[Rfam]
RNA sequence: UUAACAGAUAGAGGUCGCGCGACUUAUGAGUAGCUUUCCGGAUGCCGCAGGGGCAGUUGAUGGGAGAUGAAAGGAAUAGCGCCGAAGGGAUUUAUCAUCUGCGGAUAUAUCUCUGGGCAUAUGGCGAACAGCCUUAUGACUGUCAUCAGAUUUGAUGGGGAGCUAUCGUGAUU
Dot-bracket structure: ......(((((.....((((.(.((.......(.((((((....................)))))).)......))).))))...((((((.((((.......)))).))))))((.((((.(((.....))).)))).)).((((((....))))))....)))))......
Numbered sequence: 001u002u003a004a005c006a007g008a009u010a011g012a013g014g015u016c017g018c019g020c021g022a023c024u025u026a027u028g029a030g031u032a033g034c035u036u037u038c039c040g041g042a043u044g045c046c047g048c049a050g051g052g053g054c055a056g057u058u059g060a061u062g063g064g065a066g067a068u069g070a071a072a073g074g075a076a077u078a079g080c081g082c083c084g085a086a087g088g089g090a091u092u093u094a095u096c097a098u099c100u101g102c103g104g105a106u107a108u109a110u111c112u113c114u115g116g117g118c119a120u121a122u123g124g125c126g127a128a129c130a131g132c133c134u135u136a137u138g139a140c141u142g143u144c145a146u147c148a149g150a151u152u153u154g155a156u157g158g159g160g161a162g163c164u165a166u167c168g169u170g171a172u173u
Stems, first nucleotide, its partner, number of pairs: 007167005017082004022077001024076002033068001035066006086114006093107004115141002118138004123133003143158006
Rfam assigns this 173-nucleotide RNA from Agathobacter rectalis to the family "Lysine riboswitch aptamer". Taxonomically the source falls in Agathobacter rectalis (Bacteria, Clostridia, Lachnospirales, Lachnospiraceae). Riboswitches are metabolite binding domains within certain messenger RNAs that serve as precision sensors for their corresponding targets. Allosteric rearrangement of mRNA structure is mediated by ligand binding, and this results in modulation of gene expression.